A member of the RNA family "Small Cajal body specific RNA 11" from Nothobranchius furzeri, 152 nucleotides long.
The organism belongs to Nothobranchius, within Eukaryota.
The family's RNA type in Rfam is small Cajal body RNA.
RNA sequence: GAGUUCUGAUCCUUAAAGGAUGGCCGUCCUGUCUGGGCUGCUGCCGCUCAGUGGCGGCGGACGGGCCGGCAGACAGGACACAGAGACGUCCGCUCAGACAUGGGGACCCGUCCAAAGACACGGGCUCGGUCCUAAAGGCAGAGCGGGACAAA
Numbered sequence: 001g002a003g004u005u006c007u008g009a010u011c012c013u014u015a016a017a018g019g020a021u022g023g024c025c026g027u028c029c030u031g032u033c034u035g036g037g038c039u040g041c042u043g044c045c046g047c048u049c050a051g052u053g054g055c056g057g058c059g060g061a062c063g064g065g066c067c068g069g070c071a072g073a074c075a076g077g078a079c080a081c082a083g084a085g086a087c088g089u090c091c092g093c094u095c096a097g098a099c100a101u102g103g104g105g106a107c108c109c110g111u112c113c114a115a116a117g118a119c120a121c122g123g124g125c126u127c128g129g130u131c132c133u134a135a136a137g138g139c140a141g142a143g144c145g146g147g148a149c150a151a152a
Base pairs, nucleotide, nucleotide: 003079004078005077006076007075008074010073011072024069025068026067028065029064030063031062032061033060034059035058090147091145092144093143094142095141097139099137103133104132105131106130107129108128110125111124112123113122